[Rfam]
RNA: Selenocysteine transfer RNA
RNA sequence: GGAGGCAAGUGUAGCUGGUGCGCACCUUAGGCUUCAAACCUAAUGUAGGGCUAGAUGACUAGUCCUUGGGGAGUUCGAUUCUCUCGCCUUC
Numbered sequence: 001g002g003a004g005g006c007a008a009g010u011g012u013a014g015c016u017g018g019u020g021c022g023c024a025c026c027u028u029a030g031g032c033u034u035c036a037a038a039c040c041u042a043a044u045g046u047a048g049g050g051c052u053a054g055a056u057g058a059c060u061a062g063u064c065c066u067u068g069g070g071g072a073g074u075u076c077g078a079u080u081c082u083c084u085c086g087c088c089u090u091c
Base pairs, nucleotide, nucleotide: 001091002090003089004088005087006086009025010024011023012022014021015020026045027043028042029041030040031039047066048065049064050063051062070084071083072082073081